Source information:
This 132-nucleotide RNA from Bifidobacterium cuniculi belongs to the Rfam family "FMN riboswitch aptamer (RFN element)". Rfam's curators write: The RFN element is a highly conserved domain that is found frequently in the 5'-untranslated regions of prokaryotic mRNAs that encode for flavin mononucleotide (FMN) biosynthesis and transport proteins. The match comes from Rfam's covariance-model search (86 bits).
RNA sequence: UGCAAGUUUCAAGGCAAGGUGAAAUCCCUUACUGGCGGUGGCGCCCACAGGCGAAGCCCGCAACCCGCCCAGGCGGUGGAUCCGGUCCGAGUCCGGAGCCAACGGUGACAGUCCGGAUGAAAGAAACGGAGC
Numbered sequence: 001u002g003c004a005a006g007u008u009u010c011a012a013g014g015c016a017a018g019g020u021g022a023a024a025u026c027c028c029u030u031a032c033u034g035g036c037g038g039u040g041g042c043g044c045c046c047a048c049a050g051g052c053g054a055a056g057c058c059c060g061c062a063a064c065c066c067g068c069c070c071a072g073g074c075g076g077u078g079g080a081u082c083c084g085g086u087c088c089g090a091g092u093c094c095g096g097a098g099c100c101a102a103c104g105g106u107g108a109c110a111g112u113c114c115g116g117a118u119g120a121a122a123g124a125a126a127c128g129g130a131g132c
Base pairs, nucleotide, nucleotide: 006127007126008125009124010123017029018028019027031112032111033101034100035061036060037059038058056099057098065076066075081097082096083095084094085093103115104114105113